RNA sequence: GUUUGGGUGAUGACUUCCCAGUUAGUCGGAUACCCCUACACUCGUUCUGUGAGUGAUAACUGGUGUCUGACAAAC
Numbered sequence: 001g002u003u004u005g006g007g008u009g010a011u012g013a014c015u016u017c018c019c020a021g022u023u024a025g026u027c028g029g030a031u032a033c034c035c036c037u038a039c040a041c042u043c044g045u046u047c048u049g050u051g052a053g054u055g056a057u058a059a060c061u062g063g064u065g066u067c068u069g070a071c072a073a074a075c
Base pairs, nucleotide, nucleotide: 001075002074003073004072005071
Dot-bracket structure: (((((.................................................................)))))

Rfam assigns this 75-nucleotide RNA sequence from Cinclus mexicanus to the family "Small nucleolar RNA SNORD101". Gene Ontology terms of the family: RNA processing and nucleolus. Pairs were carried over by alignment from the consensus structure, which was predicted with PFOLD.